The family of this 64-nucleotide sequence from Biomphalaria glabrata is "Small nucleolar RNA SNORD82". Rfam links the family to the GO terms nucleolus and RNA processing. The literature on the family includes a 2002 paper in Mol Cell Biol by Galardi et al., "Purified box C/D snoRNPs are able to reproduce site-specific 2'-O-methylation of target RNA in vitro". Rfam classes the family as a C/D-box small nucleolar RNA. snoRNA U82 or Z25 is found in both humans and mice.
RNA sequence: UGUACAAAUGAUGAAAAUUAUGGGACGUAAUUCUGUUAACCUGAUGAUUCAUAUUCUGAUGUGC
Numbered sequence: 001u002g003u004a005c006a007a008a009u010g011a012u013g014a015a016a017a018u019u020a021u022g023g024g025a026c027g028u029a030a031u032u033c034u035g036u037u038a039a040c041c042u043g044a045u046g047a048u049u050c051a052u053a054u055u056c057u058g059a060u061g062u063g064c
Stems, first nucleotide, its partner, number of pairs: 002064005